Background
The record is a 176-nucleotide RNA from Lachnospiraceae bacterium 3-1, which matches "Lysine riboswitch aptamer" in Rfam. Its family is annotated with lysine biosynthetic process in the Gene Ontology. The match comes from Rfam's covariance-model search (119 bits).
RNA sequence: UGAAUGGAUAGAGGUUGCGUGAUUCAUGAGUAAUUUAUCGGAUGUGGCAGGCACAGUGGAAGAUAAUGGAAAGGGAAGAACGCCGAAAGAAUUCUUUUCCUGUAGAGAGAUUCUUGGGCAUAUAAUGAAUAAUUAUAUGACUGUCAUCUUAAGAUGGAUGGAGCGCUAUCACAGAU
Dot-bracket structure: ......(((((.....((((..(((.........(((((......................)))))........)))..))))...(((((.((((((......)))))))))))((.((((((((.....)))))))).)).((((((......))))))....)))))......
Numbered sequence: 001u002g003a004a005u006g007g008a009u010a011g012a013g014g015u016u017g018c019g020u021g022a023u024u025c026a027u028g029a030g031u032a033a034u035u036u037a038u039c040g041g042a043u044g045u046g047g048c049a050g051g052c053a054c055a056g057u058g059g060a061a062g063a064u065a066a067u068g069g070a071a072a073g074g075g076a077a078g079a080a081c082g083c084c085g086a087a088a089g090a091a092u093u094c095u096u097u098u099c100c101u102g103u104a105g106a107g108a109g110a111u112u113c114u115u116g117g118g119c120a121u122a123u124a125a126u127g128a129a130u131a132a133u134u135a136u137a138u139g140a141c142u143g144u145c146a147u148c149u150u151a152a153g154a155u156g157g158a159u160g161g162a163g164c165g166c167u168a169u170c171a172c173a174g175a176u
Stems, first nucleotide, its partner, number of pairs: 007170005017083004023077003035066005087115005093110006116142002119139008144161006
The organism belongs to Lachnospiraceae, within Bacteria.
The family's consensus secondary structure is taken from published work.